RNA sequence: CCUCUGGAGAGACUUAUUAAAUUAAGCACCGAAGGAGCAAGCCUAUUUAUAGGUGAAACUCUCAGGUAAAAGGACAGUGG
Numbered sequence: 001c002c003u004c005u006g007g008a009g010a011g012a013c014u015u016a017u018u019a020a021a022u023u024a025a026g027c028a029c030c031g032a033a034g035g036a037g038c039a040a041g042c043c044u045a046u047u048u049a050u051a052g053g054u055g056a057a058a059c060u061c062u063c064a065g066g067u068a069a070a071a072g073g074a075c076a077g078u079g080g
Base pairs, nucleotide, nucleotide: 001080002079004077005076006075013026014025015024016023028067029066030065031063032062035061036060037059041054042053

Glycine riboswitch aptamer: an 80-nucleotide RNA from Thomasclavelia ramosa. Lineage of the source: Bacteria > Bacillota > Erysipelotrichia > Erysipelotrichales > Thomasclavelia ramosa. A search with the family's covariance model found it, with a score of 61 bits.